[Rfam]
RNA sequence: UUUCGGGAGGCAGCUCUCGCAGCCGUUCUUUGAAACAGUUGAGGAAAGUCCGGACAUUACAGGGCAGGAUUCCUCGUGAAAGCGGGGGCAGGCGGCGUUUAAGCGCUGUUUGACGGAUAGCGCCACAGAGAAUAUACCGCCUCUUUCGGGAGGUAAGGGUGAAAAGGUGGGGUAAGAGCCCACCGCGUCGAGGGUAACCAAGACGGCACGGCAAGCCCAAUCCAAUGCAAGACUAUGUAGGGGACCGGGCGGCCCGUCCAUUAAAGUCCCGGGUAAGUCGCAUUUCGCUUCGGCGGGGCGAACUUCGGUUCGCAGAUGAAUGAGAGCACGUAGCUGGGUUUACCCGGCUGCGAACAGAAUCCGGCUUACGCUUUCCGAAAACCU
Numbered sequence: 001u002u003u004c005g006g007g008a009g010g011c012a013g014c015u016c017u018c019g020c021a022g023c024c025g026u027u028c029u030u031u032g033a034a035a036c037a038g039u040u041g042a043g044g045a046a047a048g049u050c051c052g053g054a055c056a057u058u059a060c061a062g063g064g065c066a067g068g069a070u071u072c073c074u075c076g077u078g079a080a081a082g083c084g085g086g087g088g089c090a091g092g093c094g095g096c097g098u099u100u101a102a103g104c105g106c107u108g109u110u111u112g113a114c115g116g117a118u119a120g121c122g123c124c125a126c127a128g129a130g131a132a133u134a135u136a137c138c139g140c141c142u143c144u145u146u147c148g149g150g151a152g153g154u155a156a157g158g159g160u161g162a163a164a165a166g167g168u169g170g171g172g173u174a175a176g177a178g179c180c181c182a183c184c185g186c187g188u189c190g191a192g193g194g195u196a197a198c199c200a201a202g203a204c205g206g207c208a209c210g211g212c213a214a215g216c217c218c219a220a221u222c223c224a225a226u227g228c229a230a231g232a233c234u235a236u237g238u239a240g241g242g243g244a245c246c247g248g249g250c251g252g253c254c255c256g257u258c259c260a261u262u263a264a265a266g267u268c269c270c271g272g273g274u275a276a277g278u279c280g281c282a283u284u285u286c287g288c289u290u291c292g293g294c295g296g297g298g299c300g301a302a303c304u305u306c307g308g309u310u311c312g313c314a315g316a317u318g319a320a321u322g323a324g325a326g327c328a329c330g331u332a333g334c335u336g337g338g339u340u341u342a343c344c345c346g347g348c349u350g351c352g353a354a355c356a357g358a359a360u361c362c363g364g365c366u367u368a369c370g371c372u373u374u375c376c377g378a379a380a381a382c383c384u
Base pairs, nucleotide, nucleotide: 001380002379003378004377005376006375007374008373009372010371013327014326015325016324017323018322020041021040022039023038025036026035027034046367047366048365050364051363052362053361054360055227056226057225058224062255063254064253065252067223068222069221070220071219072087073086074085075084076083088114089112090111091110092109093108094107095106096105097104098103115218116217120216121215122212123211124210137158138157139154140153141152142151143150144149166184167183168182169181170180171179185207186205187204188203189202192199193198231279232278233277234276241270242269243268244267245266247259248258249257250256